[Rfam]
Group II catalytic intron D1-D4-1: a 100-nucleotide RNA from Streptomyces sp. TLI_235. The base pairs follow the family's consensus structure. The organism belongs to Streptomyces, within Bacteria. A reference for the family is Bonen and Vogel (2001), "The ins and outs of group II introns", Trends Genet. About the family: Group II introns are found in rRNA, tRNA and mRNA of organelles in fungi, plants and protists, and also in mRNA in bacteria.
RNA sequence: GGUCGAGGGGAGGAAUUCCCUCGGCCUGCCGGGCAGAAGUCAGCAGAGGUCGUAGUACCGAGAUGGGUAGGCAGUAGGCCGACAAGGGCUCGGGAAGGAC
Numbered sequence: 001g002g003u004c005g006a007g008g009g010g011a012g013g014a015a016u017u018c019c020c021u022c023g024g025c026c027u028g029c030c031g032g033g034c035a036g037a038a039g040u041c042a043g044c045a046g047a048g049g050u051c052g053u054a055g056u057a058c059c060g061a062g063a064u065g066g067g068u069a070g071g072c073a074g075u076a077g078g079c080c081g082a083c084a085a086g087g088g089c090u091c092g093g094g095a096a097g098g099a100c
Stems, first nucleotide, its partner, number of pairs: 001026002004023008040047002049100003058093005